[Rfam]
A member of the RNA family "Eukaryotic large subunit ribosomal RNA" from Australozyma monospora, 569 nucleotides of a longer RNA.
RNA sequence: AUCAGCGGGGAAAGAAGACCCUGUUGAGCUUGACUCUAGUUUGACAUUGUGAAGAGACAUGGAGGGUGUAGAAUAAGUGGGAGCUUCGGCGCCGGUGAAAUACCACUACCUCCAUCGUCCCUUUACUUACCGGGGAGACACCCCUUCACGCGCCUAGUGCAGCCGGGACACUGUCAGGUGGGGAGUUUGGCUGGGGCGGCACAUCUGUUAAACAAUAACGCAGAUGUCCUAAGGGGGGCUCAUGGAGGACGGAAACCUCCAGUAGAACAAAAGGGUAAAUGCCCCCUUGAUUUUGAUUUUCAGUGUGAAUACAAACCAUGAAAGUGUGGCCUAUCGAUCCUUUAAUCCUCCGAGUUUGAGGCUAGAGGUGCCAGAAAAGUUACCACAGGGAUAACUGGCUUGUGGCAGUCAAGCGUUCAUAGCGACAUUGCUUUUUGAUUCUUCGAUGUCGGCUCUUCCUAUCAUACCGAAGCAGAAUUCGGUAAGCGUUGGAUUGUUCACCCACUAAUAGGGAACGUGAGCUGGGUUUAGACCGUCGUGAGACAGGUUAGUUUUACCCUACUGAUGUG
Dot-bracket structure: (((((..(((.((......((((.(((((((.((((...(((((((..((((((.((((((((((..........(((((..((....))............))))).))))))).))).))))))...((((.............................)))).....)))))))....))))..((((.....))).)((((((...........))))))..((....((((((((.((((((.......))))))...))((......))....))))))....(((..((((.......))))..))).(((....))).))..........(((((..((((.......)))).))))).........)))))..))))))........(.(.(.((((((...((.......))...))))))...)).)..........(((((((((((..(..((((((......))))))....).(((.(.....).))).....)))))..)..)))).).....(((((((....))).))))....))..))).)))))...
Numbered sequence: 001a002u003c004a005g006c007g008g009g010g011a012a013a014g015a016a017g018a019c020c021c022u023g024u025u026g027a028g029c030u031u032g033a034c035u036c037u038a039g040u041u042u043g044a045c046a047u048u049g050u051g052a053a054g055a056g057a058c059a060u061g062g063a064g065g066g067u068g069u070a071g072a073a074u075a076a077g078u079g080g081g082a083g084c085u086u087c088g089g090c091g092c093c094g095g096u097g098a099a100a101u102a103c104c105a106c107u108a109c110c111u112c113c114a115u116c117g118u119c120c121c122u123u124u125a126c127u128u129a130c131c132g133g134g135g136a137g138a139c140a141c142c143c144c145u146u147c148a149c150g151c152g153c154c155u156a157g158u159g160c161a162g163c164c165g166g167g168a169c170a171c172u173g174u175c176a177g178g179u180g181g182g183g184a185g186u187u188u189g190g191c192u193g194g195g196g197c198g199g200c201a202c203a204u205c206u207g208u209u210a211a212a213c214a215a216u217a218a219c220g221c222a223g224a225u226g227u228c229c230u231a232a233g234g235g236g237g238g239c240u241c242a243u244g245g246a247g248g249a250c251g252g253a254a255a256c257c258u259c260c261a262g263u264a265g266a267a268c269a270a271a272a273g274g275g276u277a278a279a280u281g282c283c284c285c286c287u288u289g290a291u292u293u294u295g296a297u298u299u300u301c302a303g304u305g306u307g308a309a310u311a312c313a314a315a316c317c318a319u320g321a322a323a324g325u326g327u328g329g330c331c332u333a334u335c336g337a338u339c340c341u342u343u344a345a346u347c348c349u350c351c352g353a354g355u356u357u358g359a360g361g362c363u364a365g366a367g368g369u370g371c372c373a374g375a376a377a378a379g380u381u382a383c384c385a386c387a388g389g390g391a392u393a394a395c396u397g398g399c400u401u402g403u404g405g406c407a408g409u410c411a412a413g414c415g416u417u418c419a420u421a422g423c424g425a426c427a428u429u430g431c432u433u434u435u436u437g438a439u440u441c442u443u444c445g446a447u448g449u450c451g452g453c454u455c456u457u458c459c460u461a462u463c464a465u466a467c468c469g470a471a472g473c474a475g476a477a478u479u480c481g482g483u484a485a486g487c488g489u490u491g492g493a494u495u496g497u498u499c500a501c502c503c504a505c506u507a508a509u510a511g512g513g514a515a516c517g518u519g520a521g522c523u524g525g526g527u528u529u530a531g532a533c534c535g536u537c538g539u540g541a542g543a544c545a546g547g548u549u550a551g552u553u554u555u556a557c558c559c560u561a562c563u564g565a566u567g568u569g
Stems, first nucleotide, its partner, number of pairs: 001566005008560003012555002020389004025385002027381005033186004040178007049126006056119003059115007076107005083090002130166004189202001190200003203225006228329002234286006240266002243261006267276002291315003296310004317326003340367005347361004398439001400437001402436001404432006413423002450525001451523004455517001456514005463488001466483006490504003494500001531549004535544003
A search with the family's covariance model found it, with a score of 2938 bits.